[Rfam]
RNA sequence: CUUCACUUGUCGGAGAGCCAUUUGGCUGAGACCGUUUAUUCGGGAUCCGUAGAACCUGAUCAGGCUAAGACCUGCGUAGGGAACAAGAGAAGAUCUUUA
Numbered sequence: 001c002u003u004c005a006c007u008u009g010u011c012g013g014a015g016a017g018c019c020a021u022u023u024g025g026c027u028g029a030g031a032c033c034g035u036u037u038a039u040u041c042g043g044g045a046u047c048c049g050u051a052g053a054a055c056c057u058g059a060u061c062a063g064g065c066u067a068a069g070a071c072c073u074g075c076g077u078a079g080g081g082a083a084c085a086a087g088a089g090a091a092g093a094u095c096u097u098u099a
Stems, first nucleotide, its partner, number of pairs: 006087005011049004017026003033042002055080004061074004
This 99-nucleotide RNA sequence from Vibrio renipiscarius belongs to the Rfam family "TPP riboswitch aptamer (THI element)". It scores 76 bits against the family's covariance model. Its family is annotated with thiamine pyrophosphate binding in the Gene Ontology. Lineage of the source: Bacteria > Pseudomonadati > Vibrionales > Vibrionaceae > Vibrio.